The family of this 77-nucleotide sequence is "Streptococcus sRNA SpF59 (ldcC RNA)".
[Rfam]
RNA sequence: UGACCACUGUUUCACAGUUUCCGCUUUUUGGGCGGUGGAGCAGGCAAGGCCAUGCGGACAGCCGGGUCAAAUGCCGA
Number, nucleotide and partner (000 for none) at each position: 001u069002g068003a067004c066005c065006a000007c043008u042009g041010u040011u039012u038013c037014a036015c035016a000017g000018u000019u000020u000021c000022c000023g000024c000025u000026u000027u000028u000029u000030g000031g000032g000033c000034g000035g015036u014037g013038g012039a011040g010041c009042a008043g007044g000045c000046a000047a000048g000049g000050c000051c000052a000053u000054g000055c000056g000057g000058a000059c000060a000061g000062c000063c000064g000065g005066g004067u003068c002069a001070a000071a000072u000073g000074c000075c000076g000077a000